[Rfam]
RNA sequence: UUUGAUGUAAAUUGAUUUAUGUUUGGAAAUAUUUACUUAAAAAUGAUUCUUAUGAGUUGAUGUGGUUUGGAUAC
Number, nucleotide and partner (000 for none) at each position: 001u000002u000003u000004g000005a000006u000007g000008u000009a000010a000011a061012u060013u059014g058015a057016u056017u055018u054019a000020u000021g053022u052023u000024u000025g049026g048027a047028a000029a000030u045031a044032u043033u042034u041035a000036c000037u000038u000039a000040a000041a034042a033043a032044u031045g030046a000047u027048u026049c025050u000051u000052a022053u021054g018055a017056g016057u015058u014059g013060a012061u011062g000063u000064g000065g000066u000067u000068u000069g000070g000071a000072u000073a000074c000
RNA: MIR5272 microRNA precursor family
Organism: Medicago truncatula